Small nucleolar RNA SNORA20: a 131-nucleotide RNA from Otolemur garnettii.
Rfam links the family to the GO terms nucleolus and RNA processing.
It scores 119 bits against the family's covariance model.
Rfam 15.1 lists 437 matches to the family in 157 species.
From the family's description: ACA20 is a member of the H/ACA class of snoRNA that guide the sites of modification of uridines to pseudouridines.

RNA sequence: UUUCCCAUUUAUUUGCUGCCAUAGUCUUACAAUGAUAUGAGCAGUUAUACGCAUGGGAUAAAAUAAUAGUGGGCCAUUGUCAGUUGAGAUGAAAUAACCAUUUUCAUCUUUUGUGCAUGGACUAGACAUUA
Number, nucleotide and partner (000 for none) at each position: 001u000002u000003u058004c057005c056006c055007a054008u053009u000010u000011a000012u000013u000014u000015g045016c044017u043018g042019c041020c000021a000022u037023a036024g000025u035026c034027u000028u000029a000030c000031a000032a000033u000034g026035a025036u023037a022038u000039g000040a000041g019042c018043a017044g016045u015046u000047a000048u000049a000050c000051g000052c000053a008054u007055g006056g005057g004058a003059u000060a000061a000062a000063a000064u000065a000066a000067u000068a000069g000070u124071g123072g122073g000074c120075c119076a118077u000078u117079g116080u115081c000082a000083g000084u000085u000086g110087a109088g108089a107090u106091g104092a103093a102094a101095u100096a000097a000098c000099c000100a095101u094102u093103u092104u091105c000106a090107u089108c088109u087110u086111u000112u000113g000114u000115g080116c079117a078118u076119g075120g074121a000122c072123u071124a070125g000126a000127c000128a000129u000130u000131a000